Small nucleolar RNA snR43: a 212-nucleotide RNA from Kluyveromyces lactis.
The family is grouped with related families in Rfam's "SNORA9 clan".
The family's RNA type in Rfam is H/ACA-box small nucleolar RNA.
[Rfam]
RNA sequence: CACUCCUGAUUCUGCCCCAUGUUCUUUCUCUUCCAUAGAUUAAUGGGUUCUGUUUAUGGAGAAGAUAAAGCUGGUGAAUGGUGCGCCUGCGCCUUUGAUACAACAGUGGGAUGCACUUCAUUUACCAGAUCGUGAGAACACAUUAAACGACUUGUCUGACUUUAUUUUCGAAUAUCCAAUAGCCUGACGAGACUUGAUGUGCCUCUAUAUUU
Numbered sequence: 001c002a003c004u005c006c007u008g009a010u011u012c013u014g015c016c017c018c019a020u021g022u023u024c025u026u027u028c029u030c031u032u033c034c035a036u037a038g039a040u041u042a043a044u045g046g047g048u049u050c051u052g053u054u055u056a057u058g059g060a061g062a063a064g065a066u067a068a069a070g071c072u073g074g075u076g077a078a079u080g081g082u083g084c085g086c087c088u089g090c091g092c093c094u095u096u097g098a099u100a101c102a103a104c105a106g107u108g109g110g111a112u113g114c115a116c117u118u119c120a121u122u123u124a125c126c127a128g129a130u131c132g133u134g135a136g137a138a139c140a141c142a143u144u145a146a147a148c149g150a151c152u153u154g155u156c157u158g159a160c161u162u163u164a165u166u167u168u169c170g171a172a173u174a175u176c177c178a179a180u181a182g183c184c185u186g187a188c189g190a191g192a193c194u195u196g197a198u199g200u201g202c203c204u205c206u207a208u209a210u211u212u
Stems, first nucleotide, its partner, number of pairs: 003061004016047004020042002023039003071128010081116005086110005134205003140200005151191005158184001163174004